[Rfam]
RNA sequence: ACUGAGUUUAUUUGAGUACUUAGACGGCCAUUAGAGCAACGAUCUAGCACCAUAUAAAUUCAGUAU
Numbered sequence: 001a002c003u004g005a006g007u008u009u010a011u012u013u014g015a016g017u018a019c020u021u022a023g024a025c026g027g028c029c030a031u032u033a034g035a036g037c038a039a040c041g042a043u044c045u046a047g048c049a050c051c052a053u054a055u056a057a058a059u060u061c062a063g064u065a066u
Stems, first nucleotide, its partner, number of pairs: 001064011013052002016050002019047002023044002025041002
RNA: mir-83 microRNA precursor family